[Rfam]
RNA sequence: UAGGUUACCUCAUUAACCUACCCCUACUCACACCUGCGUAAAGAGUAAUCUCUAGGUGGGAAGCUGUGAGGACAAUGUAACAAAUAAAAUCCAUCAUAAUGAUAUGAUCGAUGUGCUAGGGGAAUAAUAAUCAUGAUGAAUG
Number, nucleotide and partner (000 for none) at each position: 001u000002a019003g018004g017005u016006u015007a014008c000009c000010u000011c000012a000013u000014u007015a006016a005017c004018c003019u002020a000021c000022c000023c000024c000025u000026a000027c000028u069029c068030a067031c066032a065033c060034c059035u058036g057037c056038g000039u054040a053041a000042a051043g050044a049045g000046u000047a000048a000049u044050c043051u042052c000053u040054a039055g000056g037057u036058g035059g034060g033061a000062a000063g000064c000065u032066g031067u030068g029069a028070g000071g000072a000073c000074a000075a000076u000077g000078u000079a000080a000081c000082a000083a000084a000085u000086a000087a000088a000089a112090u111091c110092c000093a000094u000095c000096a000097u104098a103099a000100u000101g000102a000103u098104a097105u000106g000107a000108u000109c000110g091111a090112u089113g000114u000115g000116c000117u136118a000119g134120g000121g132122g131123a000124a000125u000126a000127a000128u000129a000130a000131u122132c121133a000134u119135g000136a117137u000138g000139a000140a000141u000142g000
Rfam assigns this 142-nucleotide RNA sequence from Xylaria multiplex to the family "Group II catalytic intron D1-D4-7". It scores 64 bits against the family's covariance model. About the family: Group II introns are found in rRNA, tRNA and mRNA of organelles in fungi, plants and protists, and also in mRNA in bacteria. The organism belongs to Xylaria, within Eukaryota. A reference for the family is Chu et al. (2001), "Control of branch-site choice by a group II intron", EMBO J.